[Rfam]
RNA sequence: ACUAUCCUUUUCUUGGGGUUGUGCUACUGUCUAAUAAGUGCAUACUGAGGGCAGUACUGUUAACACCUACACAACAUGCUGGCAUCAACUAGAGCUUUGCUUUAUAUUGGUGCUAUUUUUGGAAAA
Numbered sequence: 001a002c003u004a005u006c007c008u009u010u011u012c013u014u015g016g017g018g019u020u021g022u023g024c025u026a027c028u029g030u031c032u033a034a035u036a037a038g039u040g041c042a043u044a045c046u047g048a049g050g051g052c053a054g055u056a057c058u059g060u061u062a063a064c065a066c067c068u069a070c071a072c073a074a075c076a077u078g079c080u081g082g083c084a085u086c087a088a089c090u091a092g093a094g095c096u097u098u099g100c101u102u103u104a105u106a107u108u109g110g111u112g113c114u115a116u117u118u119u120u121g122g123a124a125a126a
Stems, first nucleotide, its partner, number of pairs: 006018004021060003026055007038046001082113006090104006
This 126-nucleotide RNA sequence from Otolemur garnettii belongs to the Rfam family "U4atac minor spliceosomal RNA". It is annotated as a spliceosomal small nuclear RNA. The family has 61 seed sequences and 1,648 matches in Rfam 15.1. Gene Ontology terms of the family: U4atac snRNP, pre-mRNA 5'-splice site binding and spliceosomal tri-snRNP complex assembly. NCBI's taxonomy places the organism under Eukaryota, Bilateria, Strepsirrhini, Lorisiformes, Otolemur. Rfam's curators write: U4atac is an essential component of the minor U12-type spliceosome complex which is required for removal of the rarer class of eukaryotic introns (AT-AC, U12-type).